[Rfam]
RNA sequence: CUCUUAUCGAGAGUUGGGCGAGGGAUUUGGCCUUUUGACCCCAAAAGCAACCGACCGUAAUUCCAUUGUGAAAUGGGGCGCAUUUUUUUCGCGCCGAGACGCUGGUCUCUUAAGGCACGGUGCUAAUUCCAUUCAGAUCUGAUCUGAGAGAUAAGAG
Number, nucleotide and partner (000 for none) at each position: 001c157002u156003c155004u154005u153006a152007u151008c150009g000010a000011g000012a000013g000014u000015u044016g042017g041018g040019c000020g000021a000022g033023g032024g031025a000026u000027u000028u000029g000030g129031c024032c023033u022034u000035u000036u000037g000038a000039c000040c018041c017042c016043a000044a015045a000046a124047g123048c122049a121050a000051c120052c119053g116054a000055c114056c000057g000058u000059a000060a000061u000062u000063c000064c000065a000066u000067u000068g000069u000070g000071a000072a000073a000074u000075g000076g000077g000078g000079c000080g000081c000082a000083u000084u000085u000086u000087u000088u000089u000090c000091g000092c000093g000094c000095c000096g000097a000098g000099a000100c000101g000102c000103u000104g000105g000106u000107c000108u000109c000110u000111u000112a000113a000114g055115g000116c053117a000118c000119g052120g051121u049122g048123c047124u046125a000126a000127u000128u149129c030130c000131a000132u000133u000134c146135a145136g144137a143138u142139c000140u000141g000142a138143u137144c136145u135146g134147a000148g000149a128150g008151a007152u006153a005154a004155g003156a002157g001
RNA: SAM riboswitch aptamer (S box leader)
Organism: Bacillus subtilis